[Rfam]
RNA sequence: CAUCCUGAAGACGGCACCGGAUUAAAAUGCAAACAACCGGGCCGAAGCGGAAAGGAAGCGAUG
Numbered sequence: 001c002a003u004c005c006u007g008a009a010g011a012c013g014g015c016a017c018c019g020g021a022u023u024a025a026a027a028u029g030c031a032a033a034c035a036a037c038c039g040g041g042c043c044g045a046a047g048c049g050g051a052a053a054g055g056a057a058g059c060g061a062u063g
Stems, first nucleotide, its partner, number of pairs: 012044004017040003
The record is a 63-nucleotide RNA sequence from zeta proteobacterium SCGC AB-604-O16, which matches "Zeta-pan RNA" in Rfam. The source organism's lineage runs through Bacteria, Pseudomonadati, Pseudomonadota and Candidatius Mariprofundia. It is annotated as a small RNA.